[Rfam]
RNA: Small nucleolar RNA SNORA31
Organism: Scleropages formosus
RNA sequence: AGGCAUCCACUGAUAGACCUGAAGCGGAUUGCCUUGGCUUUUGGGUUUGCACUCGGAUGCAAGAUAAAAUUCUUUGUGCUUUCUGACUGUCAAGUGGCAGGAUGGAUUGACCUGAGGAAAACAUCC
Numbered sequence: 001a002g003g004c005a006u007c008c009a010c011u012g013a014u015a016g017a018c019c020u021g022a023a024g025c026g027g028a029u030u031g032c033c034u035u036g037g038c039u040u041u042u043g044g045g046u047u048u049g050c051a052c053u054c055g056g057a058u059g060c061a062a063g064a065u066a067a068a069a070u071u072c073u074u075u076g077u078g079c080u081u082u083c084u085g086a087c088u089g090u091c092a093a094g095u096g097g098c099a100g101g102a103u104g105g106a107u108u109g110a111c112c113u114g115a116g117g118a119a120a121a122c123a124u125c126c
Base pairs, nucleotide, nucleotide: 003060004059005058006057007056008055011051012050014049015048016047017046018045019044022040023039024038025037027035028034071118072117073116074115075114076113079109082106083105084104085103087100088099089098090097091096